Source information:
The record is a 103-nucleotide RNA, which matches "DUF3577 RNA" in Rfam. Rfam's curators put it in the seed alignment. By type it is a cis-regulatory element.
RNA sequence: CGCAAUUGCAUAGCGUGUAACUAUCACGCGAAAGUCGUCUGAAAUGCCGGUAUCACCUUUGGGUGUGACGACACUCAGCCGAUGAGGCAAAUGCAUCGGCACC
Numbered sequence: 001c002g003c004a005a006u007u008g009c010a011u012a013g014c015g016u017g018u019a020a021c022u023a024u025c026a027c028g029c030g031a032a033a034g035u036c037g038u039c040u041g042a043a044a045u046g047c048c049g050g051u052a053u054c055a056c057c058u059u060u061g062g063g064u065g066u067g068a069c070g071a072c073a074c075u076c077a078g079c080c081g082a083u084g085a086g087g088c089a090a091a092u093g094c095a096u097c098g099g100c101a102c103c
Stems, first nucleotide, its partner, number of pairs: 013029005035071005054065004078100007